[Rfam]
Annotation: A member of the RNA family "msiK RNA" from Propioniciclava coleopterorum, 55 nucleotides long. The source organism's lineage runs through Bacteria, Bacillati, Actinomycetota, Propionibacteriaceae and Propioniciclava.
Nucleotides: 055
Stems, first nucleotide, its partner, number of pairs: 007049001009047005025042006
Number, partner (000 for none) and nucleotide at each position: 001000u002000g003000c004000g005000g006000u007049u008000g009047u010046u011045c012044c013043a014000c015000a016000a017000c018000g019000g020000a021000u022000c023000g024000u025042c026041g027040g028039g029038c030037a031000c032000g033000u034000a035000c036000c037030u038029g039028c040027c041026c042025g043013u044012g045011g046010a047009a048000a049007g050000g051000a052000a053000g054000u055000g